[Rfam]
RNA sequence: AGCCUGACACCGACCCACCCAGGACGGGGGCGGGGGACCCACUUCCGACGCGCCUGCGCGUCUCGGGGUGAAGCCGUGCCGUGCCCUCAGGGCGCUGACCGGCCGGGCACCGAUUCGCCCGAACCCGACAGCUCACCUCGUAGGCGGUGAUCGGGAGGAUCA
Numbered sequence: 001a002g003c004c005u006g007a008c009a010c011c012g013a014c015c016c017a018c019c020c021a022g023g024a025c026g027g028g029g030g031c032g033g034g035g036g037a038c039c040c041a042c043u044u045c046c047g048a049c050g051c052g053c054c055u056g057c058g059c060g061u062c063u064c065g066g067g068g069u070g071a072a073g074c075c076g077u078g079c080c081g082u083g084c085c086c087u088c089a090g091g092g093c094g095c096u097g098a099c100c101g102g103c104c105g106g107g108c109a110c111c112g113a114u115u116c117g118c119c120c121g122a123a124c125c126c127g128a129c130a131g132c133u134c135a136c137c138u139c140g141u142a143g144g145c146g147g148u149g150a151u152c153g154g155g156a157g158g159a160u161c162a
Stems, first nucleotide, its partner, number of pairs: 008146001010144002015029002030141006040065001066126003074102003105120004